This 46-nucleotide sequence from Lynx canadensis belongs to the Rfam family "Histone 3' UTR stem-loop". It scores 42 bits against the family's covariance model. The family has 50 seed sequences and 44,596 matches in Rfam 15.1.

[Rfam]
RNA sequence: CAAAAGGCUCUUCUAAGAGCCACCCACUUUUUCUGUAAAGUUGCUG
Numbered sequence: 001c002a003a004a005a006g007g008c009u010c011u012u013c014u015a016a017g018a019g020c021c022a023c024c025c026a027c028u029u030u031u032u033c034u035g036u037a038a039a040g041u042u043g044c045u046g
Stems, first nucleotide, its partner, number of pairs: 006021006